[Rfam]
RNA sequence: AGAAAAGCAGGGGUAUGUUUUUUACCAUAAACAAGCCUCUCGUAGACUUUAGGGAAAUUAUAUUCAUUGUUAUUGGGUGAACCUUUGUACAUUGUUAAUGGCAGAUGGUUCAGUAAACAAUGAAACAUUG
Dot-bracket structure: ....(((...((.(.((..............)).).))........))).............(((((((((......((((((.......................))))))...)))))))))......
Numbered sequence: 001a002g003a004a005a006a007g008c009a010g011g012g013g014u015a016u017g018u019u020u021u022u023u024a025c026c027a028u029a030a031a032c033a034a035g036c037c038u039c040u041c042g043u044a045g046a047c048u049u050u051a052g053g054g055a056a057a058u059u060a061u062a063u064u065c066a067u068u069g070u071u072a073u074u075g076g077g078u079g080a081a082c083c084u085u086u087g088u089a090c091a092u093u094g095u096u097a098a099u100g101g102c103a104g105a106u107g108g109u110u111c112a113g114u115a116a117a118c119a120a121u122g123a124a125a126c127a128u129u130g
Stems, first nucleotide, its partner, number of pairs: 005049003011038002014035001016033002063124009078112006